[Rfam]
RNA sequence: CAUAGUCAGAUUAUUGCCUGAGACGGCAAGGCUGGUGGUUUUUUGAACCACCAGCCU
Numbered sequence: 001c002a003u004a005g006u007c008a009g010a011u012u013a014u015u016g017c018c019u020g021a022g023a024c025g026g027c028a029a030g031g032c033u034g035g036u037g038g039u040u041u042u043u044u045g046a047a048c049c050a051c052c053a054g055c056c057u
Base pairs, nucleotide, nucleotide: 016027017026018025030056031055032054033053034052035051036050037049038048039047
The record is a 57-nucleotide RNA sequence from Alteromonas sp. KUL42, which matches "Pseudomonas sRNA P26" in Rfam. Pairs were carried over by alignment from the consensus structure, which was predicted with RNAalifold. About the family: This small RNA (sRNA) was computationally identified in the genome of the opportunistic pathogen Pseudomonas aeruginosa and its expression verified by northern blot analysis. P26 is conserved across many Gammaproteobacteria species and appears to be consistently located between the DNA directed RNA polymerase (beta subunit) and 50S ribosomal protein L7/L12 genes. It scores 41 bits against the family's covariance model. On this family, see Livny et al., Nucleic Acids Res 2006: "Identification of 17 Pseudomonas aeruginosa sRNAs and prediction of sRNA-encoding genes in 10 diverse pathogens using the bioinformatic tool sRNAPredict2".